[Rfam]
Nucleotides: 098
Stems, first nucleotide, its partner, number of pairs: 007055006015045002020042002022039001023036005056071006073093001075096001079091003
Number, partner (000 for none) and nucleotide at each position: 001000a002000u003000a004000a005000a006000u007055g008054u009053u010052u011051u012050c013000u014000a015045g016044g017000g018000u019000u020042c021041c022039g023036c024035a025034g026033u027032u028000c029000a030000u031000a032027g033026a034025c035024u036023g037000g038000u039022c040000u041021g042020g043000u044016c045015c046000a047000a048000g049000a050012g051011a052010a053009a054008a055007c056071g057070c058069a059068u060067a061066g062000g063000u064000a065000a066061c067060u068059a069058u070057g071056u072000a073093c074000a075096c076000g077000g078000a079091g080090g081089g082000a083000c084000a085000a086000a087000a088000a089081c090080c091079c092000g093073g094000g095000a096075g097000g098000a